Rfam assigns this 136-nucleotide sequence from Actinotalea bogoriensis to the family "SAM (S-adenosyl methionine) riboswitch aptamer". Pairs were carried over by alignment from the consensus structure, which is taken from published work. From the family's description: SAM-IV is a mRNA element that regulates gene expression via direct sensing of S-adenosylmethionine (SAM or AdoMet).
Nucleotides: 136
Stems, first nucleotide, its partner, number of pairs: 001099004009060001011059006021052002061086003066082003071077001102125010
Number, partner (000 for none) and nucleotide at each position: 001099g002098g003097u004096c005000a006000c007000g008000a009060g010000u011059g012058c013057c014056a015055g016054c017000g018000a019000a020000g021052g022051g023000c024000g025000u026000g027000c028000a029000c030000c031000g032000c033000a034000c035000g036000c037000c038000c039000c040000c041000a042000c043000a044000g045000c046000c047000c048000c049000g050000g051022c052021u053000u054016g055015c056014u057013g058012g059011c060009c061086g062085g063084c064000a065000a066082c067081c068080c069000u070000c071077c072000u073000c074000c075000g076000c077071g078000u079000g080068g081067g082066g083000u084063g085062c086061c087000c088000c089000g090000g091000g092000u093000g094000a095000c096004g097003a098002c099001c100000u101000g102125g103124u104123c105122c106121u107120g108119c109118g110117c111116c112000g113000u114000c115000c116111g117110g118109u119108g120107c121106g122105g123104g124103g125102c126000a127000a128000g129000c130000g131000c132000g133000g134000g135000g136000g